[Rfam]
RNA sequence: UGCCUAAACCCUUUAUAGGAUAUGGCAGAAAAAACCUUGUGAGAAGUAAGCUCCUUAUCAGAGCAUCUCACAAGGUUAUCAUCCGAAAGGGUGGUAGGUGGUGAAAGCCAUC
Numbered sequence: 001u002g003c004c005u006a007a008a009c010c011c012u013u014u015a016u017a018g019g020a021u022a023u024g025g026c027a028g029a030a031a032a033a034a035c036c037u038u039g040u041g042a043g044a045a046g047u048a049a050g051c052u053c054c055u056u057a058u059c060a061g062a063g064c065a066u067c068u069c070a071c072a073a074g075g076u077u078a079u080c081a082u083c084c085g086a087a088a089g090g091g092u093g094g095u096a097g098g099u100g101g102u103g104a105a106a107g108c109c110a111u112c
Base pairs, nucleotide, nucleotide: 001027002026003025004024010019011018012017035075036074037073038072039071040070041069042068043067044066050064051063052062053061077096078095079094080093081092082091083090084089097112098111099110100109101108102107

Shown here is a 112-nucleotide RNA, a member of the family "LOOT RNA". The family's consensus secondary structure is taken from published work.